Record summary: Rfam assigns this 102-nucleotide RNA from Brevibacillus panacihumi to the family "Purine riboswitch aptamer".
RNA sequence: CGAAACAAGAUACUGUGUGCUCGUAUAAUUUUGGGAAUAAGGCCCAACAGUUUCUACCGGGUGACCGUAAAUCGCCUGACUACGAGUGAAAGAGCGUCUAGG
Numbered sequence: 001c002g003a004a005a006c007a008a009g010a011u012a013c014u015g016u017g018u019g020c021u022c023g024u025a026u027a028a029u030u031u032u033g034g035g036a037a038u039a040a041g042g043c044c045c046a047a048c049a050g051u052u053u054c055u056a057c058c059g060g061g062u063g064a065c066c067g068u069a070a071a072u073c074g075c076c077u078g079a080c081u082a083c084g085a086g087u088g089a090a091a092g093a094g095c096g097u098c099u100a101g102g
Base pairs, nucleotide, nucleotide: 018088019087020086021085022084023083024082025081029049031047032046033045034044035043058078059077060076061075062074063073064072
Taxonomically the source falls in Brevibacillus panacihumi (Bacteria, Bacillati, Bacillota, Brevibacillus). Riboswitches are metabolite binding domains within certain messenger RNAs that serve as precision sensors for their corresponding targets. Allosteric rearrangement of mRNA structure is mediated by ligand binding, and this results in modulation of gene expression. It scores 84 bits against the family's covariance model.